[Rfam]
RNA: SmY spliceosomal RNA
Organism: Diploscapter pachys
RNA sequence: GCGAAUUCUUUAAUUCUCGCAGAGUCUUACAUAAGACUCGGUGAAAAAUUUUUGGGGGCCUCGCUCCGCGAGGUU
Number, nucleotide and partner (000 for none) at each position: 001g000002c000003g000004a000005a000006u000007u000008c000009u000010u000011u000012a000013a000014u000015u000016c000017u000018c000019g000020c000021a000022g039023a038024g037025u000026c035027u034028u033029a000030c000031a000032u000033a028034a027035g026036a000037c024038u023039c022040g000041g000042u000043g000044a000045a000046a000047a000048a000049u000050u000051u000052u000053u000054g000055g000056g000057g000058g074059c073060c072061u071062c070063g069064c068065u000066c000067c000068g064069c063070g062071a061072g060073g059074u058075u000